[Rfam]
RNA sequence: GCUUAUUCUCAGGGCGGGGUGUAAUUCCCCACCGGCGGUAAACCAGUGAACGUAUGAACGAAUAAGGUUCUGCGCACUGGAAGCCCGCGAGCGCUCAGGCUGUGUUUUCCGAUAUCAAUUGUCGGUUUUCGCAACAUGAGGUCAGCAGACCCGGUGUAAUUCCGGGGCCGACGGUUAAAGUCCGGAUGGGAGAGAGUAACG
Numbered sequence: 001g002c003u004u005a006u007u008c009u010c011a012g013g014g015c016g017g018g019g020u021g022u023a024a025u026u027c028c029c030c031a032c033c034g035g036c037g038g039u040a041a042a043c044c045a046g047u048g049a050a051c052g053u054a055u056g057a058a059c060g061a062a063u064a065a066g067g068u069u070c071u072g073c074g075c076a077c078u079g080g081a082a083g084c085c086c087g088c089g090a091g092c093g094c095u096c097a098g099g100c101u102g103u104g105u106u107u108u109c110c111g112a113u114a115u116c117a118a119u120u121g122u123c124g125g126u127u128u129u130c131g132c133a134a135c136a137u138g139a140g141g142u143c144a145g146c147a148g149a150c151c152c153g154g155u156g157u158a159a160u161u162c163c164g165g166g167g168c169c170g171a172c173g174g175u176u177a178a179a180g181u182c183c184g185g186a187u188g189g190g191a192g193a194g195a196g197u198a199a200c201g
Base pairs, nucleotide, nucleotide: 003199004198005197006196007195008194009193010192017029018028019027031181032180033170034169035088036087037086038085083168084167091146092145150166151165152164153163154162172184173183174182